This 74-nucleotide RNA sequence from Medicago truncatula belongs to the Rfam family "MIR5272 microRNA precursor family". The source organism's lineage runs through Eukaryota, Embryophyta, Magnoliopsida, Hologalegina and Medicago. Rfam 15.1 lists 271 matches to the family in 4 species. The base pairs follow the family's consensus structure, which was predicted with RNAalifold. Rfam links the family to the GO terms RISC complex and miRNA-mediated post-transcriptional gene silencing.
[Rfam]
RNA sequence: UUUGGUGUGAAUUGAUUUGUGUUUGGAUACACUCACUUAAAAGUGAUUCUUAUGAGUCGAUGUUGUUUGGAUGA
Numbered sequence: 001u002u003u004g005g006u007g008u009g010a011a012u013u014g015a016u017u018u019g020u021g022u023u024u025g026g027a028u029a030c031a032c033u034c035a036c037u038u039a040a041a042a043g044u045g046a047u048u049c050u051u052a053u054g055a056g057u058c059g060a061u062g063u064u065g066u067u068u069g070g071a072u073g074a
Stems, first nucleotide, its partner, number of pairs: 011061008021053002025049004030045004